[Rfam]
RNA sequence: UAUUGUUACAGCUCUUUUGGAAUUUGUCCAACAGGUUUUCCAGUUUCCACCAGAAAACCCCA
Numbered sequence: 001u002a003u004u005g006u007u008a009c010a011g012c013u014c015u016u017u018u019g020g021a022a023u024u025u026g027u028c029c030a031a032c033a034g035g036u037u038u039u040c041c042a043g044u045u046u047c048c049a050c051c052a053g054a055a056a057a058c059c060c061c062a
Stems, first nucleotide, its partner, number of pairs: 034059007043050002
Dot-bracket structure: .................................(((((((..((....))..)))))))...

Shown here is a 62-nucleotide sequence from Cebus imitator, a member of the family "U7 small nuclear RNA". NCBI's taxonomy places the organism under Eukaryota, Gnathostomata, Euarchontoglires, Cebinae, Cebus. The match comes from Rfam's covariance-model search (56 bits).